Description
The family of this 125-nucleotide RNA from Paenibacillus albidus is "pan motif".
RNA sequence: GAGACUGUAUCGAUAGAUUCGAACAGUACUCCCGCAAGUAUUAUUCAUCAAUAGUAUUUAUUGUGAAGCCAUGGAGGUGAACUCCCCAGGAAUUUGCUCUGAUCCGUAAGGACCGAGACAAAAGA
Dot-bracket structure: ((((((((.((((.....))))))))).)))..............................................................((((((.(.(((....)))).))).)))....
The source organism's lineage runs through Bacteria, Bacilli, Caryophanales, Paenibacillaceae and Paenibacillus.